[Rfam]
RNA sequence: UAGCGCAUUGGGAGCUGUAAACCCAGGGGCGGUAGCGUA
Numbered sequence: 001u002a003g004c005g006c007a008u009u010g011g012g013a014g015c016u017g018u019a020a021a022c023c024c025a026g027g028g029g030c031g032g033u034a035g036c037g038u039a
Stems, first nucleotide, its partner, number of pairs: 008026005

Rfam assigns this 39-nucleotide RNA from Affinibrenneria salicis to the family "JUMPstart RNA".
Taxonomically the source falls in Affinibrenneria (Bacteria, Pseudomonadati, Pseudomonadota, Gammaproteobacteria).
It scores 52 bits against the family's covariance model.
The family's RNA type in Rfam is cis-regulatory element.